[Rfam]
RNA: Small nucleolar RNA snoR99
RNA sequence: CGGCCUGUGGGAUGAACAGGUCCUGAUAUUUAUCACCAUCUGUUCACUUUGUCAGCUGACAUGCAUGUUUUAAGCUGAUCAAUGAGAAUGGUGAAUGG
Numbered sequence: 001c002g003g004c005c006u007g008u009g010g011g012a013u014g015a016a017c018a019g020g021u022c023c024u025g026a027u028a029u030u031u032a033u034c035a036c037c038a039u040c041u042g043u044u045c046a047c048u049u050u051g052u053c054a055g056c057u058g059a060c061a062u063g064c065a066u067g068u069u070u071u072a073a074g075c076u077g078a079u080c081a082a083u084g085a086g087a088a089u090g091g092u093g094a095a096u097g098g
Base pairs, nucleotide, nucleotide: 035092036091037090038089039088051079052078053077054076055075056074057073